[Rfam]
RNA: Y RNA
Organism: Macaca mulatta
RNA sequence: GAAUGGUCCAAGUGCAGUAGUAUUUACAACUAAAAUGAUUACAAGCAGUUACAGAUUUCCUUGUUCCUUUUCCACUUGCACUGUUGCAUUUGACUAGAUUUAU
Numbered sequence: 001g002a003a004u005g006g007u008c009c010a011a012g013u014g015c016a017g018u019a020g021u022a023u024u025u026a027c028a029a030c031u032a033a034a035a036u037g038a039u040u041a042c043a044a045g046c047a048g049u050u051a052c053a054g055a056u057u058u059c060c061u062u063g064u065u066c067c068u069u070u071u072c073c074a075c076u077u078g079c080a081c082u083g084u085u086g087c088a089u090u091u092g093a094c095u096a097g098a099u100u101u102a103u
Stems, first nucleotide, its partner, number of pairs: 001099001004096005010091002014087002016082003020079003028065003032061001